[Rfam]
RNA sequence: GGUUUUCUUUGGUGAAAAUCCAAUGAAUUAAAGAUGAGAGGAAAUUCUCCAUUGGUAGCAAAUGCUUAUCCAUUAAGCGGAGAAAAUCUUA
Numbered sequence: 001g002g003u004u005u006u007c008u009u010u011g012g013u014g015a016a017a018a019u020c021c022a023a024u025g026a027a028u029u030a031a032a033g034a035u036g037a038g039a040g041g042a043a044a045u046u047c048u049c050c051a052u053u054g055g056u057a058g059c060a061a062a063u064g065c066u067u068a069u070c071c072a073u074u075a076a077g078c079g080g081a082g083a084a085a086a087u088c089u090u091a
Base pairs, nucleotide, nucleotide: 009023010022011021012020047082048081049080050079051073052072054070055069056068057067058066
Rfam assigns this 91-nucleotide RNA from Plantago depressa to the family "Plastid-rps12 3UTR RNA". Rfam describes the family as follows. Plastid rpl20 is a non-coding RNA (ncRNA) recognised in plastids. It was found in the three prime untranslated region (3UTR) of rps12 gene, its 3UTR location sugest a role in transcript maduration. The literature on the family includes a 2023 paper in Plant Commun by Richter et al., "Retrograde signaling in plants: A critical review focusing on the GUN pathway and beyond". The source organism's lineage runs through Eukaryota, Viridiplantae, Euphyllophyta, Spermatophyta and Plantago. The family has 1,299 seed sequences and 1,710 matches in Rfam 15.1.